[Rfam]
RNA sequence: CUGCUGGCCGUCUCUAAUUCGCUUGGUGCAGGUCGGGAACGGAGGACUUCCACAGGGAUCCUGGGGGGCUCGCCCCCUCCCCCCACCCUGCACCCGCCCGUCCUCCAGCGGUGGUGCGUCGGCGGCGCAUCCGCUCCCGCCUUGCAUCAACUGAAUCGGAGACGGAGGCGAGU
Numbered sequence: 001c002u003g004c005u006g007g008c009c010g011u012c013u014c015u016a017a018u019u020c021g022c023u024u025g026g027u028g029c030a031g032g033u034c035g036g037g038a039a040c041g042g043a044g045g046a047c048u049u050c051c052a053c054a055g056g057g058a059u060c061c062u063g064g065g066g067g068g069c070u071c072g073c074c075c076c077c078u079c080c081c082c083c084c085a086c087c088c089u090g091c092a093c094c095c096g097c098c099c100g101u102c103c104u105c106c107a108g109c110g111g112u113g114g115u116g117c118g119u120c121g122g123c124g125g126c127g128c129a130u131c132c133g134c135u136c137c138c139g140c141c142u143u144g145c146a147u148c149a150a151c152u153g154a155a156u157c158g159g160a161g162a163c164g165g166a167g168g169c170g171a172g173u
Base pairs, nucleotide, nucleotide: 013160014159017156018155019154020153023150024149025148026147027146028145029144030143031142032141034139035138036137037136038135040133041132042131043130
Background
The family of this 173-nucleotide RNA sequence from Colocasia esculenta is "MIR168 microRNA precursor family". Rfam 15.1 lists 518 matches to the family in 218 species. On this family, see Rhoades et al., Cell 2002: "Prediction of plant microRNA targets".